[Rfam]
RNA: L31-Actinobacteria ribosomal protein leader
RNA sequence: CCGGCACCGGUUCACCCCUGGUCGAGAAUGCUGUGCGCGCAACGCCGCAGCGGGGGACCCGGCGGCC
Numbered sequence: 001c002c003g004g005c006a007c008c009g010g011u012u013c014a015c016c017c018c019u020g021g022u023c024g025a026g027a028a029u030g031c032u033g034u035g036c037g038c039g040c041a042a043c044g045c046c047g048c049a050g051c052g053g054g055g056g057a058c059c060c061g062g063c064g065g066c067c
Stems, first nucleotide, its partner, number of pairs: 003067003007062004015056006